[Rfam]
RNA sequence: AAGCAGGAUUCAGACUACAAUAUAGCUGUUGAGUACUGCAUUAUUGUUCUUCCUGCUCAAAAUUAAGUUGUUUCUUUACUGUAACUGGCUGCUAUACUCGCCUGUAGCAGCCAGGAACAUUUGGCCUCAUACAU
Numbered sequence: 001a002a003g004c005a006g007g008a009u010u011c012a013g014a015c016u017a018c019a020a021u022a023u024a025g026c027u028g029u030u031g032a033g034u035a036c037u038g039c040a041u042u043a044u045u046g047u048u049c050u051u052c053c054u055g056c057u058c059a060a061a062a063u064u065a066a067g068u069u070g071u072u073u074c075u076u077u078a079c080u081g082u083a084a085c086u087g088g089c090u091g092c093u094a095u096a097c098u099c100g101c102c103u104g105u106a107g108c109a110g111c112c113a114g115g116a117a118c119a120u121u122u123g124g125c126c127u128c129a130u131a132c133a134u
Stems, first nucleotide, its partner, number of pairs: 003056005017044001019042003023038003085114003089110004

Rfam assigns this 134-nucleotide sequence from Carlito syrichta to the family "Small nucleolar RNA SNORA63". Rfam's curators write: E3 belongs to the H/ACA class of snoRNAs and is involved in the processing of eukaryotic pre-rRNA and has regions of complementarity to 18S rRNA. E3 is encoded in introns in the gene for protein synthesis initiation factor 4AII. Rfam 15.1 lists 1,279 matches to the family in 601 species. The base pairs follow the family's consensus structure, which was predicted with PFOLD. A reference for the family is Mishra and Eliceiri (1997), "Three small nucleolar RNAs that are involved in ribosomal RNA precursor processing", Proc Natl Acad Sci U S A. A search with the family's covariance model found it, with a score of 100 bits. The source organism's lineage runs through Eukaryota, Opisthokonta, Vertebrata, Euarchontoglires and Carlito.